The family of this 83-nucleotide RNA sequence from Niallia nealsonii is "c-di-GMP-I riboswitch aptamer". The match comes from Rfam's covariance-model search (81 bits). About the family: GEMM was predicted in a large-scale screen for bacterial structured RNA regulatory elements. Genes associated with GEMM are involved in a diverse array of functions, including chemotaxis regulation, signal transduction, secretion and chitin.

[Rfam]
RNA sequence: AAUUAAAGUGGGCAAAUUUUACGAAAGUAAAAGACGCAAAGCCACGGGCCUAAAGCAUUAGCUAUGGUAGCCGGGUUGCCAAG
Numbered sequence: 001a002a003u004u005a006a007a008g009u010g011g012g013c014a015a016a017u018u019u020u021a022c023g024a025a026a027g028u029a030a031a032a033g034a035c036g037c038a039a040a041g042c043c044a045c046g047g048g049c050c051u052a053a054a055g056c057a058u059u060a061g062c063u064a065u066g067g068u069a070g071c072c073g074g075g076u077u078g079c080c081a082a083g
Stems, first nucleotide, its partner, number of pairs: 012037002017032006040077004045073003048068003055062002